[Rfam]
RNA: SAM riboswitch aptamer (S box leader)
Organism: Jeotgalibacillus alimentarius
RNA sequence: UUCUUAUCAAGAGAGGCGGAGGGAAAAGGCCCGUUGAAACCUCAGCAACCUUCACGAACAGUGAAAAGGUGCUAAAUCCAUCCUGUCAGCAGACAGGGAAGAUAAGAA
Numbered sequence: 001u002u003c004u005u006a007u008c009a010a011g012a013g014a015g016g017c018g019g020a021g022g023g024a025a026a027a028g029g030c031c032c033g034u035u036g037a038a039a040c041c042u043c044a045g046c047a048a049c050c051u052u053c054a055c056g057a058a059c060a061g062u063g064a065a066a067a068g069g070u071g072c073u074a075a076a077u078c079c080a081u082c083c084u085g086u087c088a089g090c091a092g093a094c095a096g097g098g099a100a101g102a103u104a105a106g107a108a
Stems, first nucleotide, its partner, number of pairs: 001108008013043004021032003026081001028079002044073004049069002051065004077100001082097006